[Rfam]
RNA sequence: UCAGAUUUCAAGUUUGUGCGUGAAUCUGAUGAGUUGAGUACGCACUUGAUCUGGGGGAUGUUGAUAGUCAAUUCUAUCAACAUUUUCCUGAUUUGAUAAUCAAUCGGUGUUGUAUUAGUUUGUUAGAUUCACGCACAAACUCGUAAUCUGUCU
Number, nucleotide and partner (000 for none) at each position: 001u000002c150003a149004g000005a147006u146007u145008u000009c000010a000011a141012g140013u139014u138015u137016g136017u135018g134019c133020g132021u131022g130023a129024a128025u127026c126027u000028g124029a123030u122031g000032a000033g000034u000035u000036g000037a000038g000039u000040a000041c000042g000043c000044a000045c000046u000047u000048g000049a000050u000051c000052u000053g000054g000055g000056g000057g000058a000059u000060g000061u000062u000063g000064a000065u000066a000067g000068u000069c000070a000071a000072u000073u000074c118075u117076a000077u000078c000079a000080a000081c000082a000083u000084u000085u000086u000087c106088c000089u000090g000091a000092u000093u000094u000095g000096a000097u000098a000099a000100u000101c000102a000103a000104u000105c000106g087107g000108u000109g000110u000111u000112g000113u000114a000115u000116u000117a075118g074119u000120u000121u000122g030123u029124u028125a000126g026127a025128u024129u023130c022131a021132c020133g019134c018135a017136c016137a015138a014139a013140c012141u011142c000143g000144u000145a007146a006147u005148c000149u003150g002151u000152c000153u000

This 153-nucleotide sequence from Olea europaea belongs to the Rfam family "MIR403 microRNA precursor family". The source organism's lineage runs through Eukaryota, Tracheophyta, Mesangiospermae, Lamiales and Olea europaea. On this family, see Mica et al., BMC Genomics 2009: "High throughput approaches reveal splicing of primary microRNA transcripts and tissue specific expression of mature microRNAs in Vitis vinifera". The base pairs follow the family's consensus structure, which was predicted with WAR. Its family is annotated with RISC complex and miRNA-mediated post-transcriptional gene silencing in the Gene Ontology. Rfam 15.1 lists 215 matches to the family in 108 species.